[Rfam]
RNA sequence: CUAUAGUCCCGAAAAUCGCUUCGUAUAAUCCCAAUGAUAUGGUUUGGGAGUUUCUACCAAGAGCCUUAAAUUCUUGAUUAUGAAGUCUGUAACUUUAUGC
Numbered sequence: 001c002u003a004u005a006g007u008c009c010c011g012a013a014a015a016u017c018g019c020u021u022c023g024u025a026u027a028a029u030c031c032c033a034a035u036g037a038u039a040u041g042g043u044u045u046g047g048g049a050g051u052u053u054c055u056a057c058c059a060a061g062a063g064c065c066u067u068a069a070a071u072u073c074u075u076g077a078u079u080a081u082g083a084a085g086u087c088u089g090u091a092a093c094u095u096u097a098u099g100c
Base pairs, nucleotide, nucleotide: 018086019085020084021083022082023081024080025079029049030048031047032046033045034044058076059075060074061073062072063071
Purine riboswitch aptamer: a 100-nucleotide RNA from Shewanella violacea.
About the family: Riboswitches are metabolite binding domains within certain messenger RNAs that serve as precision sensors for their corresponding targets.
The base pairs follow the family's consensus structure, which is taken from published work.
Lineage of the source: Bacteria > Pseudomonadota > Gammaproteobacteria > Shewanella > Shewanella violacea.
A search with the family's covariance model found it, with a score of 76 bits.